Rfam assigns this 79-nucleotide RNA from Sus scrofa to the family "mir-497 microRNA precursor family". The source organism's lineage runs through Eukaryota, Teleostomi, Boreoeutheria, Artiodactyla and Sus. The family has 18 seed sequences and 262 matches in Rfam 15.1. Rfam links the family to the GO terms RISC complex and miRNA-mediated post-transcriptional gene silencing. On this family, see Gu et al., FEBS Lett 2007: "Identification and characterization of microRNAs from the bovine adipose tissue and mammary gland". The family's consensus secondary structure was predicted with RNAalifold.
RNA sequence: CCCGCCCCAGCAGCACACUGUGGUUUGUACGGCACUGUGGCCACGUCCAAACCACACUGUGGUGUUAGAGCGAGGGUGG
Numbered sequence: 001c002c003c004g005c006c007c008c009a010g011c012a013g014c015a016c017a018c019u020g021u022g023g024u025u026u027g028u029a030c031g032g033c034a035c036u037g038u039g040g041c042c043a044c045g046u047c048c049a050a051a052c053c054a055c056a057c058u059g060u061g062g063u064g065u066u067a068g069a070g071c072g073a074g075g076g077u078g079g
Base pairs, nucleotide, nucleotide: 006076007075008074009066010065011064012063014061015060016059017058019056020055021054022053023052024051025050026049027048029046030045031044032041033040
Dot-bracket structure: .....(((((((.((((.(((((((((.(((((......))..))).))))))))).)))).)))).......)))...